[Rfam]
RNA sequence: UACUCAUCACGAUUGGUGGAGGGACAGGCCCCGCGAAACCAAGGCAAAAGAUCUCGAUCCGAGUGCUAAUUCCUGCAGAUCCCGCUAGAUCUGAAAGAUGGGUC
Numbered sequence: 001u002a003c004u005c006a007u008c009a010c011g012a013u014u015g016g017u018g019g020a021g022g023g024a025c026a027g028g029c030c031c032c033g034c035g036a037a038a039c040c041a042a043g044g045c046a047a048a049a050g051a052u053c054u055c056g057a058u059c060c061g062a063g064u065g066c067u068a069a070u071u072c073c074u075g076c077a078g079a080u081c082c083c084g085c086u087a088g089a090u091c092u093g094a095a096a097g098a099u100g101g102g103u104c
Base pairs, nucleotide, nucleotide: 002103003102004101005100006099007098008097013042014041015040016039017038021031022030023029025075026074027073028072043067044066045065046064050059051058052057071096076093077092078091079090080089081088
Dot-bracket structure: .(((((((....(((((...(((.[[[[)))......)))))((((...(((....)))....))))...(]]]]((((((......))))))..)))))))).
This 104-nucleotide RNA belongs to the Rfam family "SAM riboswitch aptamer (S box leader)". The family's consensus secondary structure is taken from published work.